[Rfam]
RNA sequence: GGUCAUGAGUGCCAGCGUCAAGCCCCGGCUCGCUGGCCGGCAACCCUCCAACCGCGGUGGGGUGCCCCGGGUGAAGAGACCAGGUUGAGUGUCCGAGAAACGGACACCGGCAAGCGCGGGUC
Dot-bracket structure: ((((....(.((((((....((......)).)))))))(((..(((.((......))..))).)))...........))))..((((.((((((.......))))))))))...........

Description
The record is a 122-nucleotide RNA from Mycolicibacterium grossiae, which matches "SAM (S-adenosyl methionine) riboswitch aptamer" in Rfam. Rfam describes the family as follows. SAM-IV is a mRNA element that regulates gene expression via direct sensing of S-adenosylmethionine (SAM or AdoMet). The base pairs follow the family's consensus structure, which is taken from published work. It scores 107 bits against the family's covariance model. NCBI's taxonomy places the organism under Bacteria, Actinomycetota, Actinomycetes, Mycobacteriaceae, Mycobacterium (subgen. Mycolicibacterium).